[Rfam]
RNA: radC RNA
RNA sequence: CCUGACACCGAAUGCCGGCUGACUCUGGUCAGCGACAUGCCAAACAGCCGCGAUCUGCAAGGCUGUGAUGCGGACACACCGCAUUGAUCAACCCCGCUCGCACCGCAUCCGAUCCAGCGAGCGACUACUGCUCAAGCGGUAGUGGAUGC
Numbered sequence: 001c002c003u004g005a006c007a008c009c010g011a012a013u014g015c016c017g018g019c020u021g022a023c024u025c026u027g028g029u030c031a032g033c034g035a036c037a038u039g040c041c042a043a044a045c046a047g048c049c050g051c052g053a054u055c056u057g058c059a060a061g062g063c064u065g066u067g068a069u070g071c072g073g074a075c076a077c078a079c080c081g082c083a084u085u086g087a088u089c090a091a092c093c094c095c096g097c098u099c100g101c102a103c104c105g106c107a108u109c110c111g112a113u114c115c116a117g118c119g120a121g122c123g124a125c126u127a128c129u130g131c132u133c134a135a136g137c138g139g140u141a142g143u144g145g146a147u148g149c
Stems, first nucleotide, its partner, number of pairs: 012038003015034001018033006044066006052089004067085007117149003124143008